[Rfam]
RNA sequence: GCUGUUUUCGGCGAUGGAUCUCGCCUGGUCCGAUUCUUCGGCCCGAACCGCCGGCUCUCCGGCUGAUAGUUCCUCCUCGUAU
Numbered sequence: 001g002c003u004g005u006u007u008u009c010g011g012c013g014a015u016g017g018a019u020c021u022c023g024c025c026u027g028g029u030c031c032g033a034u035u036c037u038u039c040g041g042c043c044c045g046a047a048c049c050g051c052c053g054g055c056u057c058u059c060c061g062g063c064u065g066a067u068a069g070u071u072c073c074u075c076c077u078c079g080u081a082u
Base pairs, nucleotide, nucleotide: 010025011024012023013022016073017072018071020069021068050063051062052061053060